[Rfam]
RNA: mir-8/mir-141/mir-200 microRNA precursor family
RNA sequence: ACUGCCAUCUUACUGGGCAGCAUUGGAUGGUGUCAGGUCUCUAAUACUGCCUGGUAAUGAUGACGGC
Numbered sequence: 001a002c003u004g005c006c007a008u009c010u011u012a013c014u015g016g017g018c019a020g021c022a023u024u025g026g027a028u029g030g031u032g033u034c035a036g037g038u039c040u041c042u043a044a045u046a047c048u049g050c051c052u053g054g055u056a057a058u059g060a061u062g063a064c065g066g067c
Stems, first nucleotide, its partner, number of pairs: 002066003006062004010057011022045006
Dot-bracket structure: .(((.(((((((((((((((.((((((............)))))).))))))))))).)))).))).